[Rfam]
The record is a 117-nucleotide sequence from Filimonas lacunae, which matches "Group II catalytic intron D1-D4-2" in Rfam. For this family Rfam cites "The ins and outs of group II introns" (Bonen and Vogel, Trends Genet, 2001). Gene Ontology term of the family: Group II intron splicing. From the family's description: Group II introns are found in rRNA, tRNA and mRNA of organelles in fungi, plants and protists, and also in mRNA in bacteria.
RNA sequence: GAUGGUAGGCCCAUCGGCGGCGGUUUUCAGGAACAGCCGUCAAACCACCUUUAGCUGCUGCAAUUAAGAGUUGUGGUAGUGAGCAUGAAAGGAAAAGGCAUGUUAAACGUGUCAGGU
Number, nucleotide and partner (000 for none) at each position: 001g015002a014003u013004g012005g011006u000007a000008g000009g000010c000011c005012c004013a003014u002015c001016g041017g040018c039019g038020g037021c036022g000023g034024u033025u032026u031027u000028c000029a000030g000031g026032a025033a024034c023035a000036g021037c020038c019039g018040u017041c016042a000043a000044a000045c000046c116047a000048c092049c091050u090051u089052u088053a086054g080055c079056u000057g077058c076059u075060g000061c073062a072063a071064u070065u000066a000067a000068g000069a000070g064071u063072u062073g061074u000075g059076g058077u057078a000079g055080u054081g000082a000083g000084c000085a000086u053087g000088a052089a051090a050091g049092g048093a000094a000095a000096a000097g113098g112099c111100a110101u109102g108103u000104u000105a000106a000107a000108c102109g101110u100111g099112u098113c097114a000115g000116g046117u000
Pairs were carried over by alignment from the consensus structure. It scores 110 bits against the family's covariance model.